The record is an 81-nucleotide RNA from Darwinula stevensoni, which matches "HDV ribozyme from F. prausnitzii" in Rfam.
The source organism's lineage runs through Eukaryota, Eumetazoa, Protostomia, Podocopida and Darwinula.
Gene Ontology term of the family: catalytic activity.
A search with the family's covariance model found it, with a score of 48 bits.
[Rfam]
RNA sequence: CUCUCCUAAAGCCGUAUGCACACCUCUACGUGGUAGGAGAGAGGCAACUAUACAUCAGACAAUGUAUAGGCUGACGUGCAA
Numbered sequence: 001c002u003c004u005c006c007u008a009a010a011g012c013c014g015u016a017u018g019c020a021c022a023c024c025u026c027u028a029c030g031u032g033g034u035a036g037g038a039g040a041g042a043g044g045c046a047a048c049u050a051u052a053c054a055u056c057a058g059a060c061a062a063u064g065u066a067u068a069g070g071c072u073g074a075c076g077u078g079c080a081a
Stems, first nucleotide, its partner, number of pairs: 001041007022034003048069008